SAM riboswitch aptamer (S box leader): a 104-nucleotide sequence from Caryophanon tenue.
The family's consensus secondary structure is taken from published work.
The literature on the family includes a 1998 paper in Mol Microbiol by Grundy and Henkin, "The S box regulon: a new global transcription termination control system for methionine and cysteine biosynthesis genes in gram-positive bacteria".
Gene Ontology term of the family: regulation of gene expression.
RNA sequence: UUCUUAUCGAGAGAAGUGGAGGGACUGGCCCGACGAAGCUUCAGCAACCAGCGAUUAAGCAAGGUGCUAAAUCCAGCAGAACAUAUUGUUUUGGCAGAUGAGCG
Numbered sequence: 001u002u003c004u005u006a007u008c009g010a011g012a013g014a015a016g017u018g019g020a021g022g023g024a025c026u027g028g029c030c031c032g033a034c035g036a037a038g039c040u041u042c043a044g045c046a047a048c049c050a051g052c053g054a055u056u057a058a059g060c061a062a063g064g065u066g067c068u069a070a071a072u073c074c075a076g077c078a079g080a081a082c083a084u085a086u087u088g089u090u091u092u093g094g095c096a097g098a099u100g101a102g103c104g
Stems, first nucleotide, its partner, number of pairs: 001104001003102006013042005021031003025076004043068004048064002051060002072096001077093006